[Rfam]
transfer-messenger RNA: a 365-nucleotide RNA from Iodobacter ciconiae. Clan: tRNA clan. The base pairs follow the family's consensus structure, which is taken from published work. Bacterial tmRNA, also known as 10Sa RNA or SsrA, is named for its dual tRNA and mRNA-like properties. By type it is a non-coding RNA gene.
RNA sequence: GGGGCCGCCAUGGUUUCGACGGGGGUUGCGAAGUGGAUGAGGGCAUACCGGGGUCUCAGAUUCCCGUAAAACACUGAAUUUAUAUAGUCGCAAACGACAAUAACUACGCUCUAGCCGCUUAAUCGCGCUAGACUCUGCACUACAGGGCCCAUCGGGUAGGUCGCCUAAAAACGAUACGCAGAGUCAUUAAGAUGGGAUCGCUUUUGCUCGGGUUACUUGGGCAGAAGUUAAAUCCAAGGUAACUCGUUCUCUCCAAGCCUGUCGGUCGGCGUGGUCGGGAAUUAAAACCAAAUGACAUGACUAAGUAUGUAGAACUCACUAUAGAGUGCUUCCGGACGCGGGUUCGACUCCCGCCGGCUCCACCA
Numbered sequence: 001g002g003g004g005c006c007g008c009c010a011u012g013g014u015u016u017c018g019a020c021g022g023g024g025g026u027u028g029c030g031a032a033g034u035g036g037a038u039g040a041g042g043g044c045a046u047a048c049c050g051g052g053g054u055c056u057c058a059g060a061u062u063c064c065c066g067u068a069a070a071a072c073a074c075u076g077a078a079u080u081u082a083u084a085u086a087g088u089c090g091c092a093a094a095c096g097a098c099a100a101u102a103a104c105u106a107c108g109c110u111c112u113a114g115c116c117g118c119u120u121a122a123u124c125g126c127g128c129u130a131g132a133c134u135c136u137g138c139a140c141u142a143c144a145g146g147g148c149c150c151a152u153c154g155g156g157u158a159g160g161u162c163g164c165c166u167a168a169a170a171a172c173g174a175u176a177c178g179c180a181g182a183g184u185c186a187u188u189a190a191g192a193u194g195g196g197a198u199c200g201c202u203u204u205u206g207c208u209c210g211g212g213u214u215a216c217u218u219g220g221g222c223a224g225a226a227g228u229u230a231a232a233u234c235c236a237a238g239g240u241a242a243c244u245c246g247u248u249c250u251c252u253c254c255a256a257g258c259c260u261g262u263c264g265g266u267c268g269g270c271g272u273g274g275u276c277g278g279g280a281a282u283u284a285a286a287a288c289c290a291a292a293u294g295a296c297a298u299g300a301c302u303a304a305g306u307a308u309g310u311a312g313a314a315c316u317c318a319c320u321a322u323a324g325a326g327u328g329c330u331u332c333c334g335g336a337c338g339c340g341g342g343u344u345c346g347a348c349u350c351c352c353g354c355c356g357g358c359u360c361c362a363c364c365a
Base pairs, nucleotide, nucleotide: 001361002360003359004358005357006356007355020334021333022332023331024330025329026328033322034321035320036319038318039317040316041315044309045308046307047306048305049066050065051064052063053062056077057076058075059074110132111131112130113129114128116127117126118125133183134182135181136180137179138178140159141158142157143156148196149195150194151193152192153191200228201227202226203225204224205223206222207221208220211244212243213242214241215240216239246282247281248280249279250278251277254274257270258269259268261301262300263299264298266294338354339353340352341351342350